[Rfam]
RNA: terC RNA
RNA sequence: CUGACGGUCCGGGCCCCUCUGACGAAAGACGCCGGUUCUUUCGUGAUGUCGGACAUAGGAA
Numbered sequence: 001c002u003g004a005c006g007g008u009c010c011g012g013g014c015c016c017c018u019c020u021g022a023c024g025a026a027a028g029a030c031g032c033c034g035g036u037u038c039u040u041u042c043g044u045g046a047u048g049u050c051g052g053a054c055a056u057a058g059g060a061a
Stems, first nucleotide, its partner, number of pairs: 007054006022044008